RNA sequence: CUUGUAUGAUGAUUCACCAAUAUUAUAUGUUUUUUCUGGCAUCUCUAAUGUUAGAGCUCUUCAGCUCGAUGAAUUCAACUUUUGACUAUAUCUGAUU
Numbered sequence: 001c002u003u004g005u006a007u008g009a010u011g012a013u014u015c016a017c018c019a020a021u022a023u024u025a026u027a028u029g030u031u032u033u034u035u036c037u038g039g040c041a042u043c044u045c046u047a048a049u050g051u052u053a054g055a056g057c058u059c060u061u062c063a064g065c066u067c068g069a070u071g072a073a074u075u076c077a078a079c080u081u082u083u084g085a086c087u088a089u090a091u092c093u094g095a096u097u
Stems, first nucleotide, its partner, number of pairs: 055066004
RNA: Small nucleolar RNA snR48